[Rfam]
Description:
Shown here is a 351-nucleotide sequence from Hymenoscyphus fraxineus, a member of the family "Group I catalytic intron".
RNA sequence: GUAAGUUAGUGAAAGACAACACUGACUAGGAUAGCUGGUAAGAAAAUAGACUAAGCAUCUGUUUAGGCCAGUAAGUAGAAGUGAACCUUCUGCUAUAAACCAUCAAAUUGCGGGAAAGCCCUAAAGCAAUUUCAACCAAGCAGACGUGGCAACACAGUUUGUGGCACAGGUAAUGACUCGUGGUAUGGUAAAAUCGAAAUUGAUAGACGUGAGUCAAUGGGUAAUCCGCAGCCAAGCACCAAAUACCUUUCGGGUAUAGGGUGUGCAGUUCAUCGACUAGAUGUUGGUUGGCUUUUUUAUUCGAGAAUAAAAUGGCUUAAGAUAUAGUCAAGCCUCAUCCGAGAGGAUGCA
Numbered sequence: 001g002u003a004a005g006u007u008a009g010u011g012a013a014a015g016a017c018a019a020c021a022c023u024g025a026c027u028a029g030g031a032u033a034g035c036u037g038g039u040a041a042g043a044a045a046a047u048a049g050a051c052u053a054a055g056c057a058u059c060u061g062u063u064u065a066g067g068c069c070a071g072u073a074a075g076u077a078g079a080a081g082u083g084a085a086c087c088u089u090c091u092g093c094u095a096u097a098a099a100c101c102a103u104c105a106a107a108u109u110g111c112g113g114g115a116a117a118g119c120c121c122u123a124a125a126g127c128a129a130u131u132u133c134a135a136c137c138a139a140g141c142a143g144a145c146g147u148g149g150c151a152a153c154a155c156a157g158u159u160u161g162u163g164g165c166a167c168a169g170g171u172a173a174u175g176a177c178u179c180g181u182g183g184u185a186u187g188g189u190a191a192a193a194u195c196g197a198a199a200u201u202g203a204u205a206g207a208c209g210u211g212a213g214u215c216a217a218u219g220g221g222u223a224a225u226c227c228g229c230a231g232c233c234a235a236g237c238a239c240c241a242a243a244u245a246c247c248u249u250u251c252g253g254g255u256a257u258a259g260g261g262u263g264u265g266c267a268g269u270u271c272a273u274c275g276a277c278u279a280g281a282u283g284u285u286g287g288u289u290g291g292c293u294u295u296u297u298u299a300u301u302c303g304a305g306a307a308u309a310a311a312a313u314g315g316c317u318u319a320a321g322a323u324a325u326a327g328u329c330a331a332g333c334c335u336c337a338u339c340c341g342a343g344a345g346g347a348u349g350c351a
Base pairs, nucleotide, nucleotide: 098289099288100287101286102285104283105282109230110229111228112227113226114225119221120220121219231269232268236264237263238262239261243257244256245255246254247253273330275329276328277327278326279325291316292315293314295312296311297310298309299308336349337348338347339346340345

A search with the family's covariance model found it, with a score of 98 bits. Group I catalytic introns are large self-splicing ribozymes. They catalyse their own excision from mRNA, tRNA and rRNA precursors in a wide range of organisms. The core secondary structure consists of 9 paired regions (P1-P9). These fold to essentially two domains - the P4-P6 domain (formed from the stacking of P5, P4, P6 and P6a helices) and the P3-P9 domain (formed from the P8, P3, P7 and P9 helices).